Listeria sRNA rli38: a 149-nucleotide sequence from Pseudolactococcus reticulitermitis. The match comes from Rfam's covariance-model search (66 bits). The literature on the family includes a 2009 paper in Nature by Toledo-Arana et al., "The Listeria transcriptional landscape from saprophytism to virulence".
RNA sequence: GUUGAGUGGGAAUAACAGAGUAAAUCGAAUUGGAGUGUUUACGCCGAUUUAACAACGUUUUGAAGUCGUAAAAUGGUAUAAAUUUGUUAAAAUCUAAAUAGUUCCCAUCAAAAAUUCCACCGAGAAAAAUUCUUGGUGGGAUUUUUGAU
Numbered sequence: 001g002u003u004g005a006g007u008g009g010g011a012a013u014a015a016c017a018g019a020g021u022a023a024a025u026c027g028a029a030u031u032g033g034a035g036u037g038u039u040u041a042c043g044c045c046g047a048u049u050u051a052a053c054a055a056c057g058u059u060u061u062g063a064a065g066u067c068g069u070a071a072a073a074u075g076g077u078a079u080a081a082a083u084u085u086g087u088u089a090a091a092a093u094c095u096a097a098a099u100a101g102u103u104c105c106c107a108u109c110a111a112a113a114a115u116u117c118c119a120c121c122g123a124g125a126a127a128a129a130u131u132c133u134u135g136g137u138g139g140g141a142u143u144u145u146u147g148a149u
Base pairs, nucleotide, nucleotide: 008106009105010104011103012102050082055077058075059073060072061071063069084096086094112145113144114143115141116140117139118138119137120136121135122134123133124132
Dot-bracket structure: .......(((((.....................................(....(..((((.(.....).))).).)....).(.(.......).).....))))).....(((((((((((((.......)))))))))).)))....
NCBI's taxonomy places the organism under Bacteria, Bacillati, Bacilli, Streptococcaceae, Pseudolactococcus. Rfam classes the family as a small RNA.